[Rfam]
RNA: Bacterial small signal recognition particle RNA
RNA sequence: UCGAUGGGUUCGGGUGACGAUAUGUUCCGAACCUGGUCAGGUCCGGGAGGAAGCAGCCAUAAGGAGCCUCUGCCGGGCACCCGGAUCCAUCGAGCG
Numbered sequence: 001u002c003g004a005u006g007g008g009u010u011c012g013g014g015u016g017a018c019g020a021u022a023u024g025u026u027c028c029g030a031a032c033c034u035g036g037u038c039a040g041g042u043c044c045g046g047g048a049g050g051a052a053g054c055a056g057c058c059a060u061a062a063g064g065a066g067c068c069u070c071u072g073c074c075g076g077g078c079a080c081c082c083g084g085a086u087c088c089a090u091c092g093a094g095c096g
Stems, first nucleotide, its partner, number of pairs: 002092005009085006015077001018075002021072002024067005034059004042051003